[Rfam]
RNA sequence: AAAAAAGCAGGGGCCUCUUGCCUUUUGUGAAUGGGCCUCUCGUAGACAUCAGGGAAAUCACUUGGCAUUAUUCUUGGGUGAACCUCUGUUUUGUGUUUGUUGUGGCUGAAGGUUCAAUAAAUGAUGGCACAUUU
Numbered sequence: 001a002a003a004a005a006a007g008c009a010g011g012g013g014c015c016u017c018u019u020g021c022c023u024u025u026u027g028u029g030a031a032u033g034g035g036c037c038u039c040u041c042g043u044a045g046a047c048a049u050c051a052g053g054g055a056a057a058u059c060a061c062u063u064g065g066c067a068u069u070a071u072u073c074u075u076g077g078g079u080g081a082a083c084c085u086c087u088g089u090u091u092u093g094u095g096u097u098u099g100u101u102g103u104g105g106c107u108g109a110a111g112g113u114u115c116a117a118u119a120a121a122u123g124a125u126g127g128c129a130c131a132u133u134u
Base pairs, nucleotide, nucleotide: 005049007047011038012037014035015034016033066126067125068124069123070122071121072120079116080115081114082113083112084111085110
RNA: Small nucleolar RNA snoR74